[Rfam]
RNA sequence: AAGCAGUUUAGAGGCGCACCUUUCAAGAGUAAGCAGCUGGAGAAUACGGGGUUCGAUGAAAGCUGUCGAAAGGGGAAGGUGCCGAAGGAUGUGGUAUGUCCCCGCCAUCCACCUCCUGGGCCCUGGGUUAAGAGCCCUGGGACUGUCAUCAUUGGAAGCCAAUGAUGGAGCGCUAACUGCUUU
Numbered sequence: 001a002a003g004c005a006g007u008u009u010a011g012a013g014g015c016g017c018a019c020c021u022u023u024c025a026a027g028a029g030u031a032a033g034c035a036g037c038u039g040g041a042g043a044a045u046a047c048g049g050g051g052u053u054c055g056a057u058g059a060a061a062g063c064u065g066u067c068g069a070a071a072g073g074g075g076a077a078g079g080u081g082c083c084g085a086a087g088g089a090u091g092u093g094g095u096a097u098g099u100c101c102c103c104g105c106c107a108u109c110c111a112c113c114u115c116c117u118g119g120g121c122c123c124u125g126g127g128u129u130a131a132g133a134g135c136c137c138u139g140g141g142a143c144u145g146u147c148a149u150c151a152u153u154g155g156a157a158g159c160c161a162a163u164g165a166u167g168g169a170g171c172g173c174u175a176a177c178u179g180c181u182u183u
Stems, first nucleotide, its partner, number of pairs: 006178001008176004016082009033066006086117004091112004096108003118144002121141003125137004146168007

A member of the RNA family "Lysine riboswitch aptamer" from Caldicoprobacter faecalis, 183 nucleotides long. The source organism's lineage runs through Bacteria, Bacillati, Clostridia, Caldicoprobacteraceae and Caldicoprobacter. Its family is annotated with lysine biosynthetic process in the Gene Ontology.